[Rfam]
RNA sequence: CUGCUUAACGGAAAUGAAACCCAUAUAGGUCCAUAAUAGGUUGGAUGUUUCUACCGGUUACCGUAAACAACCGCGCUAUGAGUUUCCCGCAUCUGGGG
Numbered sequence: 001c002u003g004c005u006u007a008a009c010g011g012a013a014a015u016g017a018a019a020c021c022c023a024u025a026u027a028g029g030u031c032c033a034u035a036a037u038a039g040g041u042u043g044g045a046u047g048u049u050u051c052u053a054c055c056g057g058u059u060a061c062c063g064u065a066a067a068c069a070a071c072c073g074c075g076c077u078a079u080g081a082g083u084u085u086c087c088c089g090c091a092u093c094u095g096g097g098g
Base pairs, nucleotide, nucleotide: 018084019083020082022080023079024078025077029046030045031044033042055073056072057071058070059069